[Rfam]
RNA: Bacteroidales small SRP
Organism: Prevotella sp. CAG:5226
RNA sequence: AUAUUAUGGGUAAGUGCUGCACGGCCAGCUCCCUUCGAAUCCUCCAGGGCUUGACCGCAGCAAAGGUAGUUGGUUGUAGCGGCGCGAUGCAGUUAGCUUACCCACCC
Numbered sequence: 001a002u003a004u005u006a007u008g009g010g011u012a013a014g015u016g017c018u019g020c021a022c023g024g025c026c027a028g029c030u031c032c033c034u035u036c037g038a039a040u041c042c043u044c045c046a047g048g049g050c051u052u053g054a055c056c057g058c059a060g061c062a063a064a065g066g067u068a069g070u071u072g073g074u075u076g077u078a079g080c081g082g083c084g085c086g087a088u089g090c091a092g093u094u095a096g097c098u099u100a101c102c103c104a105c106c107c
Stems, first nucleotide, its partner, number of pairs: 008103008017092005022086002024083002